A member of the RNA family "MIR2619 microRNA precursor family" from Medicago truncatula, 201 nucleotides long.
NCBI's taxonomy places the organism under Eukaryota, Viridiplantae, Spermatophyta, fabids, Medicago.
RNA sequence: AAACAUUCCCCUAUGUAUUGGAUCUUUGGCAGUUUUGGCCCCCAAAUCCACUUUUGACUUAACAUUCGCUGACGUGGCAUCCACAAUGGUCGACACAUGGCACCUCACUUAAGGGAUGUGGGUGCCACGUCAGCGAAUGCUAAGUCAAAAGUGAACUUGGGGGCUAAAACUGCCAAAGAUCCAAUACGUAGGGGGUUGUUU
Numbered sequence: 001a002a003a004c005a006u007u008c009c010c011c012u013a014u015g016u017a018u019u020g021g022a023u024c025u026u027u028g029g030c031a032g033u034u035u036u037g038g039c040c041c042c043c044a045a046a047u048c049c050a051c052u053u054u055u056g057a058c059u060u061a062a063c064a065u066u067c068g069c070u071g072a073c074g075u076g077g078c079a080u081c082c083a084c085a086a087u088g089g090u091c092g093a094c095a096c097a098u099g100g101c102a103c104c105u106c107a108c109u110u111a112a113g114g115g116a117u118g119u120g121g122g123u124g125c126c127a128c129g130u131c132a133g134c135g136a137a138u139g140c141u142a143a144g145u146c147a148a149a150a151g152u153g154a155a156c157u158u159g160g161g162g163g164c165u166a167a168a169a170c171u172g173c174c175a176a177a178g179a180u181c182c183a184a185u186a187c188g189u190a191g192g193g194g195g196u197u198g199u200u201u
Stems, first nucleotide, its partner, number of pairs: 001201002004198002007195002012190034072130002075127008